[Rfam]
RNA sequence: AAUCCUUUUAAUUGAAGUCCAGAGAGGCUUUCAAAAGGGGAAUUAGAAACUGUAUUUACGCAGGUUUCUUUUGACACCUUUUGAGGCUUUCUCAAAAGGUGUUUUUUAU
Numbered sequence: 001a002a003u004c005c006u007u008u009u010a011a012u013u014g015a016a017g018u019c020c021a022g023a024g025a026g027g028c029u030u031u032c033a034a035a036a037g038g039g040g041a042a043u044u045a046g047a048a049a050c051u052g053u054a055u056u057u058a059c060g061c062a063g064g065u066u067u068c069u070u071u072u073g074a075c076a077c078c079u080u081u082u083g084a085g086g087c088u089u090u091c092u093c094a095a096a097a098g099g100u101g102u103u104u105u106u107u108a109u
Base pairs, nucleotide, nucleotide: 003039004038005037006036007035008034014031015030016029017028018027019026045069046068047067048066049065050064051062052061053060073103074102075101076100077099078098079097080096081095082094083093084092085091